[Rfam]
RNA sequence: AACUAUUCUCAGGGCGGGGUGAAACUCCCCACCGGCGGUAUACCCUCAGGGUGAGCCCGCGAGCGCCUGUCAACCUGACAGGGUCAGCAGAUCUGGUGAGAAGCCAGAGCCGACGGUGACAGUCCGGAUGAAAGAGGAUAGGC
Numbered sequence: 001a002a003c004u005a006u007u008c009u010c011a012g013g014g015c016g017g018g019g020u021g022a023a024a025c026u027c028c029c030c031a032c033c034g035g036c037g038g039u040a041u042a043c044c045c046u047c048a049g050g051g052u053g054a055g056c057c058c059g060c061g062a063g064c065g066c067c068u069g070u071c072a073a074c075c076u077g078a079c080a081g082g083g084u085c086a087g088c089a090g091a092u093c094u095g096g097u098g099a100g101a102a103g104c105c106a107g108a109g110c111c112g113a114c115g116g117u118g119a120c121a122g123u124c125c126g127g128a129u130g131a132a133a134g135a136g137g138a139u140a141g142g143c
Stems, first nucleotide, its partner, number of pairs: 003141008017029003031123002033112002035060004055110002063088002092108005114126003